[Rfam]
RNA: Nematode snoRNA ceN88
RNA sequence: UUUCUCUCGUCUUGGCGCUUCCACUGGUGAAUGUGGUUGUGUAUGUUACGAGAGACAAAGUAGCGCCUAACGGCUUUCGGAUCUCCUUCGGUGUUUGUCUUGAAUUUCGACAAAUGUCAUCCUCUGGGUUCGAGACAAUU
Numbered sequence: 001u002u003u004c005u006c007u008c009g010u011c012u013u014g015g016c017g018c019u020u021c022c023a024c025u026g027g028u029g030a031a032u033g034u035g036g037u038u039g040u041g042u043a044u045g046u047u048a049c050g051a052g053a054g055a056c057a058a059a060g061u062a063g064c065g066c067c068u069a070a071c072g073g074c075u076u077u078c079g080g081a082u083c084u085c086c087u088u089c090g091g092u093g094u095u096u097g098u099c100u101u102g103a104a105u106u107u108c109g110a111c112a113a114a115u116g117u118c119a120u121c122c123u124c125u126g127g128g129u130u131c132g133a134g135a136c137a138a139u140u
Base pairs, nucleotide, nucleotide: 003055004054005053006052007051008050009049010048015042016041017040018039021036022035023034024033065074066073067072076134077133078132079131080130081129082128083127084126090118091117094114095113096112097111098110099109
Dot-bracket structure: ..((((((((....((((..((((........))))..)))).....)))))))).........(((....))).(((((((((.....((..((((((.........))))))..)).......)))))))))......